[Rfam]
RNA sequence: CGGCUUGAUAAACGGUCCGCGCCUCUCCAUAUAGGCCCGUGCCGGGUUCGCCCGGCUAUGGUGAUAAAUCGUGUCGUGCAAUAGGCGCAGCGGACCCGGGGGCGGUACCCGGCGGCUCCACCACAUAUCCCCUUUCGCGAGGGGGUGUCUGACGGGGCCGAACUAGGAUCGACGUGUGUUGAAAAGCGAUAUUUUCACCCGGCCUGAGUAAGCCGUAAAAAGGUUCAAAACUCACAAGUGCCAACGAUAACGAGGCUCUUGCUCUUGCUGCGUAAUUGAUGGCCUCACGGCCGGACAUUACUCAAAAAGAACGCGGUUGAACCCACCGGGCAACAGAAGGGAAUUCA
Numbered sequence: 001c002g003g004c005u006u007g008a009u010a011a012a013c014g015g016u017c018c019g020c021g022c023c024u025c026u027c028c029a030u031a032u033a034g035g036c037c038c039g040u041g042c043c044g045g046g047u048u049c050g051c052c053c054g055g056c057u058a059u060g061g062u063g064a065u066a067a068a069u070c071g072u073g074u075c076g077u078g079c080a081a082u083a084g085g086c087g088c089a090g091c092g093g094a095c096c097c098g099g100g101g102g103c104g105g106u107a108c109c110c111g112g113c114g115g116c117u118c119c120a121c122c123a124c125a126u127a128u129c130c131c132c133u134u135u136c137g138c139g140a141g142g143g144g145g146u147g148u149c150u151g152a153c154g155g156g157g158c159c160g161a162a163c164u165a166g167g168a169u170c171g172a173c174g175u176g177u178g179u180u181g182a183a184a185a186g187c188g189a190u191a192u193u194u195u196c197a198c199c200c201g202g203c204c205u206g207a208g209u210a211a212g213c214c215g216u217a218a219a220a221a222g223g224u225u226c227a228a229a230a231c232u233c234a235c236a237a238g239u240g241c242c243a244a245c246g247a248u249a250a251c252g253a254g255g256c257u258c259u260u261g262c263u264c265u266u267g268c269u270g271c272g273u274a275a276u277u278g279a280u281g282g283c284c285u286c287a288c289g290g291c292c293g294g295a296c297a298u299u300a301c302u303c304a305a306a307a308a309g310a311a312c313g314c315g316g317u318u319g320a321a322c323c324c325a326c327c328g329g330g331c332a333a334c335a336g337a338a339g340g341g342a343a344u345u346c347a
Stems, first nucleotide, its partner, number of pairs: 041056005060199005071192007086178003090175003096112005113160007200215004205227003209223001314328004319346003324341001
Alphaproteobacteria transfer-messenger RNA: a 347-nucleotide RNA sequence from Sphingobium indicum. From the family's description: Bacterial tmRNA, also known as 10Sa RNA or SsrA, is named for its dual tRNA and mRNA-like properties. The organism belongs to Sphingobium indicum, within Bacteria. The literature on the family includes a 1996 paper in RNA by Williams and Bartel, "Phylogenetic analysis of tmRNA secondary structure". Rfam classes the family as a non-coding RNA gene. The family's consensus secondary structure is taken from published work. A search with the family's covariance model found it, with a score of 223 bits.